[Rfam]
RNA sequence: CUCUUAUCUAGAGCAGGCGGAGGGACUGGCCCGAUGAAGCCCGGCAACCGGAUGAUACCUUUUUGUAUGGUCACGGUGCUAACUCCAGCAGAAAGUAUUUUCUGAGAGAUGAGAG
Numbered sequence: 001c002u003c004u005u006a007u008c009u010a011g012a013g014c015a016g017g018c019g020g021a022g023g024g025a026c027u028g029g030c031c032c033g034a035u036g037a038a039g040c041c042c043g044g045c046a047a048c049c050g051g052a053u054g055a056u057a058c059c060u061u062u063u064u065g066u067a068u069g070g071u072c073a074c075g076g077u078g079c080u081a082a083c084u085c086c087a088g089c090a091g092a093a094a095g096u097a098u099u100u101u102c103u104g105a106g107a108g109a110u111g112a113g114a115g
Stems, first nucleotide, its partner, number of pairs: 001115008013042001016041003022032003026088004043080004048076002050072002053069001084107001089104006

Background: Shown here is a 115-nucleotide RNA sequence from Pullulanibacillus pueri, a member of the family "SAM riboswitch aptamer (S box leader)". The SAM riboswitch is found upstream of a number of genes which code for proteins involved in methionine or cysteine biosynthesis in Gram-positive bacteria. The SAM riboswitch acts at the level of transcription termination control. The predicted structure consists of a complex stem-loop region followed by a single stem loop terminator region. It scores 84 bits against the family's covariance model. Taxonomically the source falls in Pullulanibacillus (Bacteria, Bacillota, Bacilli, Caryophanales).